Shown here is a 76-nucleotide sequence from Alkaliphilus pronyensis, a member of the family "S10-Clostridia ribosomal protein leader". On this family, see Eckert and Weinberg, BMC Microbiol 2020: "Discovery of 20 novel ribosomal leader candidates in bacteria and archaea". The family's consensus secondary structure is taken from published work.

[Rfam]
RNA sequence: AGACCGCGAUGAAGCGAAAGGUUGCUAAUAAGGGAAUUUUCGCUGAGAAUGUCUUGAUCUAGGAAUCGGGCGACAA
Numbered sequence: 001a002g003a004c005c006g007c008g009a010u011g012a013a014g015c016g017a018a019a020g021g022u023u024g025c026u027a028a029u030a031a032g033g034g035a036a037u038u039u040u041c042g043c044u045g046a047g048a049a050u051g052u053c054u055u056g057a058u059c060u061a062g063g064a065a066u067c068g069g070g071c072g073a074c075a076a
Base pairs, nucleotide, nucleotide: 014043015042016041018040019039020038021037025033026032050075051074052073053072056071058069059068